[Rfam]
RNA: Acido-Lenti-1 RNA
Organism: Terriglobus albidus
RNA sequence: CCUGGGGCGUUGCCCCAGGCUGGUAUAGGGCGCGCCUUCAGCGCU
Number, nucleotide and partner (000 for none) at each position: 001c019002c018003u017004g016005g015006g014007g013008c012009g000010u000011u000012g008013c007014c006015c005016c004017a003018g002019g001020c000021u000022g000023g000024u000025a000026u000027a000028g000029g000030g000031c000032g044033c043034g042035c041036c000037u000038u000039c000040a000041g035042c034043g033044c032045u000